Shown here is a 142-nucleotide sequence from Caenorhabditis latens, a member of the family "Nematode snoRNA ceN125". Gene Ontology terms of the family: nucleolus and RNA processing. The family's RNA type in Rfam is H/ACA-box small nucleolar RNA. The match comes from Rfam's covariance-model search (110 bits). The family's consensus secondary structure was predicted with RNAalifold.
RNA sequence: AACACCCAUGGCAACAAAUUCCAAUCGUGUGAUUUCUCGCAACGCGAUUGAGCCGACGCCAUGGGAAAGUGUAUUCCAACGGCUAUUAGAUCCCAUUAACGCUACAUUCAAUUAGCGAUCGUGGUUUGCACGUAGUCGACAU
Numbered sequence: 001a002a003c004a005c006c007c008a009u010g011g012c013a014a015c016a017a018a019u020u021c022c023a024a025u026c027g028u029g030u031g032a033u034u035u036c037u038c039g040c041a042a043c044g045c046g047a048u049u050g051a052g053c054c055g056a057c058g059c060c061a062u063g064g065g066a067a068a069g070u071g072u073a074u075u076c077c078a079a080c081g082g083c084u085a086u087u088a089g090a091u092c093c094c095a096u097u098a099a100c101g102c103u104a105c106a107u108u109c110a111a112u113u114a115g116c117g118a119u120c121g122u123g124g125u126u127u128g129c130a131c132g133u134a135g136u137c138g139a140c141a142u
Stems, first nucleotide, its partner, number of pairs: 005065008022050009052057001080138001082136005089129001090127001093124004100117004